[Rfam]
Nucleotides: 148
Stems, first nucleotide, its partner, number of pairs: 007143001008141002012137001014135002019125001023122001025120001027117005
Number, partner (000 for none) and nucleotide at each position: 001000u002000a003000a004000u005000u006000u007143g008141u009140u010000u011000g012137g013000a014135g015134a016000a017000a018000a019125u020000u021000c022000u023122c024000a025120u026000u027117u028116a029115g030114u031113u032000a033000u034000g035000a036000a037000a038000u039000a040000u041000c042000c043000a044000c045000a046000c047000u048000u049000g050000a051000a052000u053000g054000c055000u056000u057000a058000a059000a060000a061000u062000c063000a064000c065000c066000u067000a068000u069000u070000a071000u072000u073000a074000c075000a076000a077000g078000u079000c080000c081000a082000a083000c084000u085000a086000u087000a088000u089000c090000a091000u092000u093000g094000a095000c096000a097000u098000u099000g100000a101000a102000a103000a104000a105000c106000a107000u108000g109000g110000a111000a112000u113031a114030a115029c116028u117027a118000c119000u120025a121000c122023g123000u124000u125019a126000a127000c128000a129000g130000u131000a132000a133000c134015u135014u136000u137012u138000u139000g140009a141008g142000a143007u144000u145000u146000u147000a148000a
Record summary: MIR480 microRNA precursor family: a 148-nucleotide sequence from Populus trichocarpa. For this family Rfam cites "Novel and mechanical stress-responsive MicroRNAs in Populus trichocarpa that are absent from Arabidopsis" (Lu et al., Plant Cell, 2005). Pairs were carried over by alignment from the consensus structure, which was predicted with WAR. Rfam's curators put it in the seed alignment. Its family is annotated with miRNA-mediated post-transcriptional gene silencing and RISC complex in the Gene Ontology.